[Rfam]
RNA sequence: CUCUGUUUCGAAGAGAUUCAGGGCAAAAAGGAG
Numbered sequence: 001c002u003c004u005g006u007u008u009c010g011a012a013g014a015g016a017u018u019c020a021g022g023g024c025a026a027a028a029a030g031g032a033g
Stems, first nucleotide, its partner, number of pairs: 001023005006016003
RNA: L31-Firmicutes ribosomal protein leader